[Rfam]
RNA: UnaL2 LINE 3' element
Organism: Gadus morhua
RNA sequence: AAAUGUACUUAUUGUAAGUCGCUUUGGAUAAAAGUGUCUGCUAAAUGUCACUUA
Numbered sequence: 001a002a003a004u005g006u007a008c009u010u011a012u013u014g015u016a017a018g019u020c021g022c023u024u025u026g027g028a029u030a031a032a033a034g035u036g037u038c039u040g041c042u043a044a045a046u047g048u049c050a051c052u053u054a
Stems, first nucleotide, its partner, number of pairs: 013043001014041003020036006